[Rfam]
RNA sequence: AGAGCAGCUCGGACGGCCGCCGCGCCAGGUGCGCGGAGGAAAGUCCGGGCUCCGCAGGGCAGGGUGCCGGAUAACGUCCGGUCGGCGCGAGCCGGAGGAAAGUGCCACAGAAAACAGACAGCCCCCAGACGGGAGCAAUGGUGAAAAGGCGGGGCAAGAGCCCGCCGGAUGCGGUGUGAGCCGUAUGCCUGGCAAACCCCACCCGGAGCAAGAUCGAAUAGGGGGGGAUGAAGCGGCCCGCCGACCCCCGGGUACGAUCGCUCGAGGCGCUCCGCAAGGAGACGUCCAGAUAAAUGGCCGUCGUAUACAGAACCCGGCUUAUGAGCUGCUCGCUAU
Numbered sequence: 001a002g003a004g005c006a007g008c009u010c011g012g013a014c015g016g017c018c019g020c021c022g023c024g025c026c027a028g029g030u031g032c033g034c035g036g037a038g039g040a041a042a043g044u045c046c047g048g049g050c051u052c053c054g055c056a057g058g059g060c061a062g063g064g065u066g067c068c069g070g071a072u073a074a075c076g077u078c079c080g081g082u083c084g085g086c087g088c089g090a091g092c093c094g095g096a097g098g099a100a101a102g103u104g105c106c107a108c109a110g111a112a113a114a115c116a117g118a119c120a121g122c123c124c125c126c127a128g129a130c131g132g133g134a135g136c137a138a139u140g141g142u143g144a145a146a147a148g149g150c151g152g153g154g155c156a157a158g159a160g161c162c163c164g165c166c167g168g169a170u171g172c173g174g175u176g177u178g179a180g181c182c183g184u185a186u187g188c189c190u191g192g193c194a195a196a197c198c199c200c201a202c203c204c205g206g207a208g209c210a211a212g213a214u215c216g217a218a219u220a221g222g223g224g225g226g227g228a229u230g231a232a233g234c235g236g237c238c239c240g241c242c243g244a245c246c247c248c249c250g251g252g253u254a255c256g257a258u259c260g261c262u263c264g265a266g267g268c269g270c271u272c273c274g275c276a277a278g279g280a281g282a283c284g285u286c287c288a289g290a291u292a293a294a295u296g297g298c299c300g301u302c303g304u305a306u307a308c309a310g311a312a313c314c315c316g317g318c319u320u321a322u323g324a325g326c327u328g329c330u331c332g333c334u335a336u
Base pairs, nucleotide, nucleotide: 002331003330004329005328006327007326008325009324010323011322012302013301014300015299016298017297018296020036021035022034023033024032025031041320042319043318045317046316047315048314049313050208051207052206053205057239058238059237060236062204063203064202065201066200067081068080069079070078071077082096083094084093085092086091097199098198102197103196104193105192106191119140120139121136122135124133125132126131148166149165150164151163152162153161168188169186170185171184172183173182174181175180212259213258214257215256222249223248224247225246226245233241234240266286267285268284269283270281271280272279273278
This 336-nucleotide RNA sequence from Fretibacterium fastidiosum belongs to the Rfam family "Bacterial RNase P class A". Pairs were carried over by alignment from the consensus structure, which is taken from published work. It is annotated as a ribozyme. The organism belongs to Fretibacterium, within Bacteria.